A member of the RNA family "Nuclear RNase P" from Ornithorhynchus anatinus, 348 nucleotides long. The literature on the family includes a 1998 paper in Annu Rev Biochem by Frank and Pace, "Ribonuclease P: unity and diversity in a tRNA processing ribozyme".

Nucleotides: 348
Stems, first nucleotide, its partner, number of pairs: 001348004005340003010285006018064005032050005037044001073329005083261004093107005108126006127257007147242006286317007
Number, partner (000 for none) and nucleotide at each position: 001348a002347g003346u004345g005340g006339g007338a008000a009000g010285c011284u012283c013282a014281g015280c016000g017000g018064a019063g020062g021061g022060g023000c024000c025000a026000c027000g028000g029000g030000c031000g032050g033049a034048g035047u036046g037044c038000g039000c040000a041000u042000g043000c044037g045000u046036c047035a048034c049033u050032c051000u052000c053000u054000g055000g056000c057000c058000a059000g060022c061021c062020c063019u064018u065000g066000g067000g068000a069000a070000g071000g072000u073329c074328u075327g076326a077325g078000a079000c080000g081000a082000g083261g084260g085259c086258c087000a088000g089000c090000g091000g092000c093107g094106g095105c096104c097103c098000u099000a100000g101000c102000a103097g104096g105095g106094c107093c108126c109125c110124c111123c112122c113121c114000g115000a116000g117000c118000c119000g120000c121113g122112g123111g124110g125109g126108g127257g128256u129255g130254a131253g132252u133251u134000c135000c136000c137000a138000g139000a140000g141000a142000a143000g144000g145000g146000g147242g148241c149240c150239u151238c152237g153000c154000g155000c156000g157000g158000g159000g160000g161000c162000c163000g164000a165000c166000c167000g168000g169000g170000c171000a172000g173000g174000a175000g176000a177000a178000g179000c180000c181000g182000c183000g184000c185000c186000g187000c188000g189000c190000u191000g192000g193000c194000g195000c196000c197000c198000c199000c200000u201000a202000g203000c204000g205000u206000c207000c208000g209000c210000c211000c212000g213000g214000c215000c216000c217000g218000c219000g220000g221000c222000g223000g224000a225000u226000g227000c228000c229000c230000c231000u232000c233000c234000c235000g236000c237152c238151g239150g240149g241148g242147c243000u244000u245000g246000g247000a248000a249000a250000c251133g252132a253131c254130u255129c256128a257127c258086g259085g260084c261083c262000g263000g264000c265000g266000g267000g268000c269000u270000g271000a272000g273000u274000g275000c276000a277000a278000u279000g280015g281014c282013u283012g284011a285010g286317g287316g288315g289314g290313g291312g292311c293000a294000c295000g296000g297000u298000u299000g300000c301000u302000u303000u304000g305000c306000c307000g308000c309000c310000g311292g312291c313290u314289c315288c316287c317286u318000a319000a320000c321000c322000c323000a324000a325077u326076u327075c328074a329073g330000a331000c332000u333000a334000c335000u336000c337000u338007u339006c340005c341000c342000u343000g344000c345004c346003a347002c348001u
Its family is annotated with tRNA processing, ribonuclease P complex and ribonuclease P activity in the Gene Ontology.
Taxonomically the source falls in Ornithorhynchus (Eukaryota, Bilateria, Gnathostomata, Euteleostomi).
Rfam classes the family as a ribozyme.
Rfam's curators put it in the seed alignment.